The family of this 170-nucleotide RNA from Thomasclavelia cocleata is "Group II catalytic intron D1-D4-3".

[Rfam]
RNA sequence: GUUCUAGACAUGGUAUCAACUGGAAAAGUUUGUGGUAAAGUCUUGAAUCAAGGAACAAGAAUUAUUAUAUAUAUAUUUAAUUGAUGAGACUGUACAAUAGGUUAAAGUCCGAUAGCAUGAGUAAGUAACUAAUGUAAAGAUAGUGAGUAUAUGGAAUAAAAGUGUUAUGU
Numbered sequence: 001g002u003u004c005u006a007g008a009c010a011u012g013g014u015a016u017c018a019a020c021u022g023g024a025a026a027a028g029u030u031u032g033u034g035g036u037a038a039a040g041u042c043u044u045g046a047a048u049c050a051a052g053g054a055a056c057a058a059g060a061a062u063u064a065u066u067a068u069a070u071a072u073a074u075a076u077u078u079a080a081u082u083g084a085u086g087a088g089a090c091u092g093u094a095c096a097a098u099a100g101g102u103u104a105a106a107g108u109c110c111g112a113u114a115g116c117a118u119g120a121g122u123a124a125g126u127a128a129c130u131a132a133u134g135u136a137a138a139g140a141u142a143g144u145g146a147g148u149a150u151a152u153g154g155a156a157u158a159a160a161a162g163u164g165u166u167a168u169g170u
Base pairs, nucleotide, nucleotide: 001016002015004013005012006011028170029169031167032166035163036162040157041156043154044153045152046148048146049145050144062143063142064141065140066139071135072134073133074131075130077128078127079126083109084108085107088103089102090101091100
The literature on the family includes a 2001 paper in Trends Genet by Bonen and Vogel, "The ins and outs of group II introns". The base pairs follow the family's consensus structure. The organism belongs to Thomasclavelia, within Bacteria.